[Rfam]
RNA sequence: GUCAGGAACCCCAUGCCUAAAGGCAGGGGCUUGCGUAAGUAAGCCUGGACCUGACCAGUCUCAGCCAGAGCAGACUUGAUGGAUAGAAUCAUCAAGGCUAUCGGGCUACGUUAGGAACGAAAUAGGUACGUUGGGGUGCUUUGCCGCUACGGUACAGCAUUAAACAUCCCUAGAGGGUUAAGGACGUGUGUUGUACGUAAAACCGUUUGCUAACAUUGACGAGGCACACAUUAC
Numbered sequence: 001g002u003c004a005g006g007a008a009c010c011c012c013a014u015g016c017c018u019a020a021a022g023g024c025a026g027g028g029g030c031u032u033g034c035g036u037a038a039g040u041a042a043g044c045c046u047g048g049a050c051c052u053g054a055c056c057a058g059u060c061u062c063a064g065c066c067a068g069a070g071c072a073g074a075c076u077u078g079a080u081g082g083a084u085a086g087a088a089u090c091a092u093c094a095a096g097g098c099u100a101u102c103g104g105g106c107u108a109c110g111u112u113a114g115g116a117a118c119g120a121a122a123u124a125g126g127u128a129c130g131u132u133g134g135g136g137u138g139c140u141u142u143g144c145c146g147c148u149a150c151g152g153u154a155c156a157g158c159a160u161u162a163a164a165c166a167u168c169c170c171u172a173g174a175g176g177g178u179u180a181a182g183g184a185c186g187u188g189u190g191u192u193g194u195a196c197g198u199a200a201a202a203c204c205g206u207u208u209g210c211u212a213a214c215a216u217u218g219a220c221g222a223g224g225c226a227c228a229c230a231u232u233a234c
Stems, first nucleotide, its partner, number of pairs: 001055006010029002012026001016023002030043004058220003063107004110214005115208005126150002130144002133141003152196009164187002167184003171180003